The family of this 190-nucleotide RNA sequence from Janthinobacterium sp. Marseille is "Manganese Mn2+ riboswitch aptamer (yybP-ykoY)". It is one of the family's seed sequences. The source organism's lineage runs through Bacteria, Pseudomonadota, Betaproteobacteria, Burkholderiales and Janthinobacterium. The base pairs follow the family's consensus structure.
RNA sequence: CUGCUAUCAUUACGCCUGAACAUUGGGGAGUAGCCGGCCUUUGGCAACAAAGGAAUCUGCAUCAACACUCUUGGCACGCAUGCCAUGGUGCAGAUAGUCGCAAGACUUGGCGAGACCAUUGAUCAAGUGACGACCGCAUGGGCCGGGGUCGUUGUUUGGUCUUUGGUUAUUCGUCCGGCCCGAGAAAGUC
Numbered sequence: 001c002u003g004c005u006a007u008c009a010u011u012a013c014g015c016c017u018g019a020a021c022a023u024u025g026g027g028g029a030g031u032a033g034c035c036g037g038c039c040u041u042u043g044g045c046a047a048c049a050a051a052g053g054a055a056u057c058u059g060c061a062u063c064a065a066c067a068c069u070c071u072u073g074g075c076a077c078g079c080a081u082g083c084c085a086u087g088g089u090g091c092a093g094a095u096a097g098u099c100g101c102a103a104g105a106c107u108u109g110g111c112g113a114g115a116c117c118a119u120u121g122a123u124c125a126a127g128u129g130a131c132g133a134c135c136g137c138a139u140g141g142g143c144c145g146g147g148g149u150c151g152u153u154g155u156u157u158g159g160u161c162u163u164u165g166g167u168u169a170u171u172c173g174u175c176c177g178g179c180c181c182g183a184g185a186a187a188g189u190c
Stems, first nucleotide, its partner, number of pairs: 001052002055095010072085005097179004102174001